[Rfam]
RNA sequence: UCUGGUGUUGAUUGUCCAAACGCAAUUCUUGUGGUCGGUCUACAUCCAGGAGUUGUGGAUGGACAUCAUGCCCCCAA
Numbered sequence: 001u002c003u004g005g006u007g008u009u010g011a012u013u014g015u016c017c018a019a020a021c022g023c024a025a026u027u028c029u030u031g032u033g034g035u036c037g038g039u040c041u042a043c044a045u046c047c048a049g050g051a052g053u054u055g056u057g058g059a060u061g062g063a064c065a066u067c068a069u070g071c072c073c074c075c076a077a
Stems, first nucleotide, its partner, number of pairs: 004074002007071001009068004014064005021057011
Rfam assigns this 77-nucleotide sequence from Oryzias melastigma to the family "mir-219 microRNA precursor family".
A reference for the family is Lim et al. (2003), "Vertebrate microRNA genes", Science.
A search with the family's covariance model found it, with a score of 62 bits.
The base pairs follow the family's consensus structure, which was predicted with RNAalifold.